[Rfam]
RNA sequence: GCUGGCAUAAUGAUGAAAUCUUUGCCGUUUACCCAUCUGAAUUUUUCCUGAUGUGUAUCUUUGACUCUGACAUGCCAGU
Dot-bracket structure: (((((((.................................................................)))))))
This 79-nucleotide sequence from Nestor notabilis belongs to the Rfam family "Small nucleolar RNA SNORD87". Its family is annotated with RNA processing and nucleolus in the Gene Ontology. For this family Rfam cites "U87 RNA, a novel C/D box small nucleolar RNA from mammalian cells" (Gogolevskaya et al., Gene, 2002).